[Rfam]
RNA sequence: UUUAGUGGUAGAGGUGCGAAACUAAAGAGUAAAGGCUUGGAGAAUGAUGAGAUUCGUUGAAAAGCUUUGAAAGGGAGUUUCGCCGAAGUGAAAACAGACUCAUUCUUUGUUUUCGCUGGUUCAGGGUUUAAGAAAUACUGAACUGUCAAGGUAUAUCACCUUGGAGAGCUAUCUCGCAA
Numbered sequence: 001u002u003u004a005g006u007g008g009u010a011g012a013g014g015u016g017c018g019a020a021a022c023u024a025a026a027g028a029g030u031a032a033a034g035g036c037u038u039g040g041a042g043a044a045u046g047a048u049g050a051g052a053u054u055c056g057u058u059g060a061a062a063a064g065c066u067u068u069g070a071a072a073g074g075g076a077g078u079u080u081c082g083c084c085g086a087a088g089u090g091a092a093a094a095c096a097g098a099c100u101c102a103u104u105c106u107u108u109g110u111u112u113u114c115g116c117u118g119g120u121u122c123a124g125g126g127u128u129u130a131a132g133a134a135a136u137a138c139u140g141a142a143c144u145g146u147c148a149a150g151g152u153a154u155a156u157c158a159c160c161u162u163g164g165a166g167a168g169c170u171a172u173c174u175c176g177c178a179a
Base pairs, nucleotide, nucleotide: 007173008172009171010170011169016083017082018081019080020079021078022077023076032068033067034066035065036064037063038062087117088116089115090114091113092112093111094110095109096108097107098106118144119143120142121141122140123139124138126136127135128134146164147163148162149161150160151159152158
Dot-bracket structure: ......(((((....((((((((........(((((((.......................))))))).......))))))))...((((((((((((.......))))))))))))(((((((.(((.....))).))))))).(((((((.....)))))))....)))))......